[Rfam]
RNA sequence: CCUCCCGCUUGCCUCCCUGAGCGGGAGCCUUACGCUGACAAUUAAGGCCUUUACCCCGGCGCCAUGUGCGCCGGGUUUUUUAU
Numbered sequence: 001c002c003u004c005c006c007g008c009u010u011g012c013c014u015c016c017c018u019g020a021g022c023g024g025g026a027g028c029c030u031u032a033c034g035c036u037g038a039c040a041a042u043u044a045a046g047g048c049c050u051u052u053a054c055c056c057c058g059g060c061g062c063c064a065u066g067u068g069c070g071c072c073g074g075g076u077u078u079u080u081u082a083u
Stems, first nucleotide, its partner, number of pairs: 004025006027048006055075008